[Rfam]
RNA sequence: UGAGGUUUCUUGCUUCUCCUAAGAGCAAGUGGUGCGGAUGGGGUUUAUACUCCCGCCCUGUUUCUUGCUUCAGGACAAAGAGCAAGUGGCGUGCAUGAAA
Numbered sequence: 001u002g003a004g005g006u007u008u009c010u011u012g013c014u015u016c017u018c019c020u021a022a023g024a025g026c027a028a029g030u031g032g033u034g035c036g037g038a039u040g041g042g043g044u045u046u047a048u049a050c051u052c053c054c055g056c057c058c059u060g061u062u063u064c065u066u067g068c069u070u071c072a073g074g075a076c077a078a079a080g081a082g083c084a085a086g087u088g089g090c091g092u093g094c095a096u097g098a099a100a
Base pairs, nucleotide, nucleotide: 009029010028011027012026013025014024016023039055040054041053043051057074058073059072060071064086065085066084067083068082069081
Rfam assigns this 100-nucleotide sequence to the family "wcaG RNA".
Pairs were carried over by alignment from the consensus structure, which is taken from published work.
The sequence is in the family's curated seed alignment.